[Rfam]
RNA sequence: UUUUAGGAUAGAGGUGCGGUAUUUAAGAGUAUCUUUGCAGAGGUAAGCACAAUGAAGCAAUGAGAAAGGAAAUGUCCGCCGAAGUGUACAGUUGAUGCUUUAAGGCUGUAUGGCUGGUUUUGCGUAGAAUAUAUGCAAGGCUGUCACAAAUUUAAUUUUGUGGAGAGCUAUCAUUCAA
Numbered sequence: 001u002u003u004u005a006g007g008a009u010a011g012a013g014g015u016g017c018g019g020u021a022u023u024u025a026a027g028a029g030u031a032u033c034u035u036u037g038c039a040g041a042g043g044u045a046a047g048c049a050c051a052a053u054g055a056a057g058c059a060a061u062g063a064g065a066a067a068g069g070a071a072a073u074g075u076c077c078g079c080c081g082a083a084g085u086g087u088a089c090a091g092u093u094g095a096u097g098c099u100u101u102a103a104g105g106c107u108g109u110a111u112g113g114c115u116g117g118u119u120u121u122g123c124g125u126a127g128a129a130u131a132u133a134u135g136c137a138a139g140g141c142u143g144u145c146a147c148a149a150a151u152u153u154a155a156u157u158u159u160g161u162g163g164a165g166a167g168c169u170a171u172c173a174u175u176c177a178a
Stems, first nucleotide, its partner, number of pairs: 007172005016079004021073004032063002035060004083115003086111008116142011144163007